Source information:
This 132-nucleotide sequence from Strongylocentrotus purpuratus belongs to the Rfam family "U4atac minor spliceosomal RNA". Rfam classes the family as a spliceosomal small nuclear RNA. The family is grouped with related families in Rfam's "U4 clan".
RNA sequence: UCAGUCCUUAUCUUGGGGAAGCAUGAUCAUUCAAUGAACGUAUAGUGAGGAUGAUUUUGCUAACACCAAUUACAAACACAUACGUCACCGCCUACAGCUUCGGCUGAUGUGUUUGGUGCAAUUUAUGGAAAA
Numbered sequence: 001u002c003a004g005u006c007c008u009u010a011u012c013u014u015g016g017g018g019a020a021g022c023a024u025g026a027u028c029a030u031u032c033a034a035u036g037a038a039c040g041u042a043u044a045g046u047g048a049g050g051a052u053g054a055u056u057u058u059g060c061u062a063a064c065a066c067c068a069a070u071u072a073c074a075a076a077c078a079c080a081u082a083c084g085u086c087a088c089c090g091c092c093u094a095c096a097g098c099u100u101c102g103g104c105u106g107a108u109g110u111g112u113u114u115g116g117u118g119c120a121a122u123u124u125a126u127g128g129a130a131a132a
Base pairs, nucleotide, nucleotide: 005018006017007016008015020061021060022059023058026055027054028053029052030051031050032049038046039045084119085118087117088116089115090112091111093109094108095106096105097104098103
About this RNA: About the family: U4atac is an essential component of the minor U12-type spliceosome complex which is required for removal of the rarer class of eukaryotic introns (AT-AC, U12-type).